[Rfam]
RNA: Nitrogen stress-induced RNA 1
RNA sequence: UGGUAGAUGCACCCUGAUUUAGCCCCGGAGGUAAUACCCUCUGGGGUUUUCUAC
Number, nucleotide and partner (000 for none) at each position: 001u000002g013003g012004u011005a000006g000007a000008u000009g000010c000011a004012c003013c002014c000015u000016g000017a000018u000019u000020u000021a000022g047023c046024c045025c044026c043027g042028g041029a040030g039031g038032u000033a000034a000035u000036a000037c000038c031039c030040u029041c028042u027043g026044g025045g024046g023047u022048u000049u000050u000051c000052u000053a000054c000